[Rfam]
RNA sequence: GAGGGCAGGCCCCUCGGAGCCGCCGUACAGGCGGAGGCUUCAAACCACCCACUGCUGCUGCGUUUAAGAGACGUGGUGGUGAGCGAGUUGGGAAAAGGCCGGGCACGACCUGGUCAGGU
Number, nucleotide and partner (000 for none) at each position: 001g015002a014003g013004g012005g011006c000007a000008g000009g000010c000011c005012c004013c003014u002015c001016g041017g040018a039019g038020c037021c036022g000023c034024c033025g032026u031027a000028c000029a000030g000031g026032c025033g024034g023035a000036g021037g020038c019039u018040u017041c016042a000043a000044a000045c000046c118047a000048c092049c091050c090051a089052c000053u086054g080055c079056u000057g077058c076059u075060g000061c073062g072063u071064u070065u000066a000067a000068g000069a000070g064071a063072c062073g061074u000075g059076g058077u057078g000079g055080u054081g000082a000083g000084c000085g000086a053087g000088u000089u051090g050091g049092g048093a000094a000095a000096a000097g115098g114099c113100c112101g111102g110103g000104c000105a000106c000107g000108a000109c000110c102111u101112g100113g099114u098115c097116a000117g000118g046119u000